[Rfam]
Rfam assigns this 58-nucleotide RNA sequence from Ictalurus punctatus to the family "mir-458 microRNA precursor family". The sequence is in the family's curated seed alignment. The family's consensus secondary structure was predicted with RNAalifold.
RNA sequence: AGCGCCAUUUACAGAGCUAUAAGCAUCAUAGUUGUCAUAGCUCUUUGAAUGGUACUGC
Numbered sequence: 001a002g003c004g005c006c007a008u009u010u011a012c013a014g015a016g017c018u019a020u021a022a023g024c025a026u027c028a029u030a031g032u033u034g035u036c037a038u039a040g041c042u043c044u045u046u047g048a049a050u051g052g053u054a055c056u057g058c
Stems, first nucleotide, its partner, number of pairs: 001056002004053007013044008
The literature on the family includes a 2008 paper in Genome Res by Murchison et al., "Conservation of small RNA pathways in platypus".